[Rfam]
RNA sequence: GAUAGAGAUGGCGAUGGAGCUCGCCGAAACCGCCCAGCGUUAAGGAAUUUUGUUAGCUAUUUCUAUUACGUUGAAGAGGCUGAUGGCUCCUACUGUUCC
Numbered sequence: 001g002a003u004a005g006a007g008a009u010g011g012c013g014a015u016g017g018a019g020c021u022c023g024c025c026g027a028a029a030c031c032g033c034c035c036a037g038c039g040u041u042a043a044g045g046a047a048u049u050u051u052g053u054u055a056g057c058u059a060u061u062u063c064u065a066u067u068a069c070g071u072u073g074a075a076g077a078g079g080c081u082g083a084u085g086g087c088u089c090c091u092a093c094u095g096u097u098c099c
Stems, first nucleotide, its partner, number of pairs: 010025004016090006032080003
Dot-bracket structure: .........[[[[..((((((]]]]......(((...........................................)))....)))))).........
The family of this 99-nucleotide RNA from Thermocoleostomius sinensis is "Fluoride riboswitch aptamer (crcB RNA motif)". A reference for the family is Baker et al. (2012), "Widespread genetic switches and toxicity resistance proteins for fluoride", Science. Pairs were carried over by alignment from the consensus structure, which is taken from published work.